[Rfam]
RNA sequence: GAAACAGACACUCAUUCUCGUAGUAGGAACGCGCAUGGGCAAGGCGGUGUAACCGCCGGGCGACAGCCACUCAUGCGCGAAGCAGGCUCCCUCCGGGGGCCUUUUUUAUUGGCCGCGA
Numbered sequence: 001g002a003a004a005c006a007g008a009c010a011c012u013c014a015u016u017c018u019c020g021u022a023g024u025a026g027g028a029a030c031g032c033g034c035a036u037g038g039g040c041a042a043g044g045c046g047g048u049g050u051a052a053c054c055g056c057c058g059g060g061c062g063a064c065a066g067c068c069a070c071u072c073a074u075g076c077g078c079g080a081a082g083c084a085g086g087c088u089c090c091c092u093c094c095g096g097g098g099g100c101c102u103u104u105u106u107u108a109u110u111g112g113c114c115g116c117g118a
Base pairs, nucleotide, nucleotide: 009023026114027113030079031078032077033076034075035074036073037072038071039070043057044056045055046054047053060067061066082103084102085101086100087099088098089097090096
RNA: Rhizobiales sRNA Atu_C8